[Rfam]
RNA sequence: CUGUCCAGGCCCUGGAACGGGGAACACCUGUCCCCGACCGCCAGCUAGGCUGGCGGCGUGCGCCGUCCACCGGGGGGCGCAAAGCCGACAGCCGUCGCAACCAGGGGAGCACCUCCAUG
Numbered sequence: 001c002u003g004u005c006c007a008g009g010c011c012c013u014g015g016a017a018c019g020g021g022g023a024a025c026a027c028c029u030g031u032c033c034c035c036g037a038c039c040g041c042c043a044g045c046u047a048g049g050c051u052g053g054c055g056g057c058g059u060g061c062g063c064c065g066u067c068c069a070c071c072g073g074g075g076g077g078c079g080c081a082a083a084g085c086c087g088a089c090a091g092c093c094g095u096c097g098c099a100a101c102c103a104g105g106g107g108a109g110c111a112c113c114u115c116c117a118u119g
Stems, first nucleotide, its partner, number of pairs: 059081004064076001066074002084098002087096003
About this RNA:
Streptomyces-metH RNA: a 119-nucleotide RNA sequence from Streptomyces benahoarensis.